[Rfam]
The record is a 93-nucleotide RNA sequence from Anabas testudineus, which matches "Vault RNA" in Rfam. The source organism's lineage runs through Eukaryota, Osteoglossocephalai, Anabantoidei, Anabantidae and Anabas. The family has 73 seed sequences and 2,873 matches in Rfam 15.1.

RNA sequence: GCGCCGGUUUAGCUCAGUGGUUACUUCUCCACAUGAUUGUUUCAUAGGUCCAUCCCUCCGGGGAUCGAACCACGGGUGCUGUCUGGUGUUUUC
Numbered sequence: 001g002c003g004c005c006g007g008u009u010u011a012g013c014u015c016a017g018u019g020g021u022u023a024c025u026u027c028u029c030c031a032c033a034u035g036a037u038u039g040u041u042u043c044a045u046a047g048g049u050c051c052a053u054c055c056c057u058c059c060g061g062g063g064a065u066c067g068a069a070c071c072a073c074g075g076g077u078g079c080u081g082u083c084u085g086g087u088g089u090u091u092u093c
Stems, first nucleotide, its partner, number of pairs: 002088006012077004017073004025069003

Record summary:
Rfam's curators write: This family of RNAs are found as part of the enigmatic vault ribonucleoprotein complex. The complex consists of a major vault protein (MVP), two minor vault proteins (VPARP and TEP1), and several small untranslated RNA molecules. It has been suggested that the vault complex is involved in drug resistance. The base pairs follow the family's consensus structure, which is taken from published work.